[Rfam]
Rfam assigns this 66-nucleotide sequence from Origma solitaria to the family "Small nucleolar RNA SNORD24". The source organism's lineage runs through Eukaryota, Chordata, Amniota, Coelurosauria and Origma. It is annotated as a C/D-box small nucleolar RNA. Rfam 15.1 lists 2,843 matches to the family in 1,188 species.
RNA sequence: UGCAAAUGAUGAUCACUUUCUACUGUUUAAACAUAUGUGAUGACAAGCACCAAGAUCGCUGAUGCA
Numbered sequence: 001u002g003c004a005a006a007u008g009a010u011g012a013u014c015a016c017u018u019u020c021u022a023c024u025g026u027u028u029a030a031a032c033a034u035a036u037g038u039g040a041u042g043a044c045a046a047g048c049a050c051c052a053a054g055a056u057c058g059c060u061g062a063u064g065c066a
Base pairs, nucleotide, nucleotide: 001066002065003064004063
Pairs were carried over by alignment from the consensus structure, which was predicted with PFOLD. Gene Ontology terms of the family: RNA processing and nucleolus. The literature on the family includes a 1996 paper in Cell by Kiss-Laszlo et al., "Site-specific ribose methylation of preribosomal RNA: a novel function for small nucleolar RNAs".